[Rfam]
RNA sequence: UCCCUAAUAGUAUAGUGGCUAGUAUGCGAGCUUGUCACGCUCGAGACCUGAGUUCGAUUCUCAGUUAGGGAG
Numbered sequence: 001u002c003c004c005u006a007a008u009a010g011u012a013u014a015g016u017g018g019c020u021a022g023u024a025u026g027c028g029a030g031c032u033u034g035u036c037a038c039g040c041u042c043g044a045g046a047c048c049u050g051a052g053u054u055c056g057a058u059u060c061u062c063a064g065u066u067a068g069g070g071a072g
Stems, first nucleotide, its partner, number of pairs: 001071007010025004027043005048064005
The family of this 72-nucleotide RNA sequence from Trematosphaeria pertusa is "tRNA". On this family, see Hou, Trends Biochem Sci 1993: "The tertiary structure of tRNA and the development of the genetic code". Transfer RNA (tRNA) molecules are approximately 80 nucleotides in length.